[Rfam]
RNA sequence: GGAUAGUACUGUUUUGCUAUCUUCGGCCAAUAAUGCAAUGACACGUGAAAAAAUUAUCCCACGUGUCAUUAUUCUAUUGGUCAGAAAUAGCAAAAAGUAUUAUCC
Dot-bracket structure: .((((......(((((((((.((.((((((((..(.(((((((((((..(......)..))))))))))).)..)))))))).)).))))))))).....)))).
MIR6274 microRNA precursor family: a 105-nucleotide sequence from Prunus yedoensis.
Taxonomically the source falls in Prunus yedoensis (Eukaryota, Embryophyta, Rosales, Rosaceae).